Group II catalytic intron D1-D4-3: a 171-nucleotide RNA.
Pairs were carried over by alignment from the consensus structure.

RNA sequence: UCCUUCGCGAGGGGGAAUCUGAAGGAAGCCGGCGGUAAAUCUCUGGCCUGACGCACAGAAAUCGAAUGAGGCCGUUGGAUGUGGGUGAGUCUGCAUAACAAGACAAAGCCCUAAACUAUCCGAAACAUUCCGCGGUAGAUUCGACAGGUAUAUGGAGAGAAAGUUCACGUU
Dot-bracket structure: ((((((....))))))...........(.((...((...(((((((((((...........(((((....(((.(.((((((((((..((((........))))...)))).............)))))).).)))...))))))))))...))))))....))...)).)